[Rfam]
RNA sequence: CAAGAGAAAGCCAAACCUGCCGUAAGGUAGGGACGAGGAAUCACAGAUUUCUUUGAAAUAGCCGAGUUGCCUUGA
Numbered sequence: 001c002a003a004g005a006g007a008a009a010g011c012c013a014a015a016c017c018u019g020c021c022g023u024a025a026g027g028u029a030g031g032g033a034c035g036a037g038g039a040a041u042c043a044c045a046g047a048u049u050u051c052u053u054u055g056a057a058a059u060a061g062c063c064g065a066g067u068u069g070c071c072u073u074g075a
Base pairs, nucleotide, nucleotide: 003072004071012035016031017030018029019028020027021026034061039068040067041066044064046062047059048058049057
RNA: c-di-GMP-I-GGC riboswitch aptamer